[Rfam]
Rfam assigns this 216-nucleotide sequence from Caulobacter radicis to the family "permuted transfer-messenger RNA". The organism belongs to Caulobacter, within Bacteria. It scores 125 bits against the family's covariance model.

RNA sequence: GGGGAUAAACGCGCACGUAAUAAGCGGACUGGACCCGGGUGCGAUUCCCGGCGGCUCCACCAAAUCUCUCCCGAGUUAUCACGGGACUGCAUGGGGCCGAUCAGCAUCGACAGACGUGUAAAGGUGUUUGCUUUCUCUCGGCUUGGCCCACCGUUUCGGGCCUUUAAACUAAAUGCGAACGAUAACUUCGCUGAAGAGUUCGCUGUCGCCGCGUAA
Numbered sequence: 001g002g003g004g005a006u007a008a009a010c011g012c013g014c015a016c017g018u019a020a021u022a023a024g025c026g027g028a029c030u031g032g033a034c035c036c037g038g039g040u041g042c043g044a045u046u047c048c049c050g051g052c053g054g055c056u057c058c059a060c061c062a063a064a065u066c067u068c069u070c071c072c073g074a075g076u077u078a079u080c081a082c083g084g085g086a087c088u089g090c091a092u093g094g095g096g097c098c099g100a101u102c103a104g105c106a107u108c109g110a111c112a113g114a115c116g117u118g119u120a121a122a123g124g125u126g127u128u129u130g131c132u133u134u135c136u137c138u139c140g141g142c143u144u145g146g147c148c149c150a151c152c153g154u155u156u157c158g159g160g161c162c163u164u165u166a167a168a169c170u171a172a173a174u175g176c177g178a179a180c181g182a183u184a185a186c187u188u189c190g191c192u193g194a195a196g197a198g199u200u201c202g203c204u205g206u207c208g209c210c211g212c213g214u215a216a
Stems, first nucleotide, its partner, number of pairs: 001138005013127004025116002029113003035051005052099007139153003
It is annotated as a non-coding RNA gene.